[Rfam]
Y RNA: a 102-nucleotide RNA from Theropithecus gelada.
It is annotated as a non-coding RNA gene.
NCBI's taxonomy places the organism under Eukaryota, Craniata, Teleostomi, Cercopithecoidea, Theropithecus.
The family's consensus secondary structure is taken from published work.
RNA sequence: UGCUGGUCCAAGUGCCGUGGUGUUUACAAACAAUUGAUCACAACCAGUUACAGAUUUCUUUGUUCCUUCUCCACUCCCACUGCAUCUCUUGACUAGCCAAAA
Numbered sequence: 001u002g003c004u005g006g007u008c009c010a011a012g013u014g015c016c017g018u019g020g021u022g023u024u025u026a027c028a029a030a031c032a033a034u035u036g037a038u039c040a041c042a043a044c045c046a047g048u049u050a051c052a053g054a055u056u057u058c059u060u061u062g063u064u065c066c067u068u069c070u071c072c073a074c075u076c077c078c079a080c081u082g083c084a085u086c087u088c089u090u091g092a093c094u095a096g097c098c099a100a101a102a
Stems, first nucleotide, its partner, number of pairs: 002097007010090002014086001017080004022076001028064002032060002